[Rfam]
RNA sequence: GGCCUGUGAUGUUACAAUAAUAUUUGCUACUCUUGAGCGUGCCAGUGACGACGCUAAAUCACCAAGAUCGCUGAGGCC
Numbered sequence: 001g002g003c004c005u006g007u008g009a010u011g012u013u014a015c016a017a018u019a020a021u022a023u024u025u026g027c028u029a030c031u032c033u034u035g036a037g038c039g040u041g042c043c044a045g046u047g048a049c050g051a052c053g054c055u056a057a058a059u060c061a062c063c064a065a066g067a068u069c070g071c072u073g074a075g076g077c078c
Stems, first nucleotide, its partner, number of pairs: 001078004
The family of this 78-nucleotide RNA from Pleodorina starrii is "Small nucleolar RNA SNORD24". The family has 14 seed sequences and 2,843 matches in Rfam 15.1. The match comes from Rfam's covariance-model search (64 bits). For this family Rfam cites "U24, a novel intron-encoded small nucleolar RNA with two 12 nt long, phylogenetically conserved complementarities to 28S rRNA" (Qu et al., Nucleic Acids Res, 1995). The source organism's lineage runs through Eukaryota, Viridiplantae, Chlorophyta, Chlamydomonadales and Pleodorina. The base pairs follow the family's consensus structure, which was predicted with PFOLD. Rfam links the family to the GO terms RNA processing and nucleolus.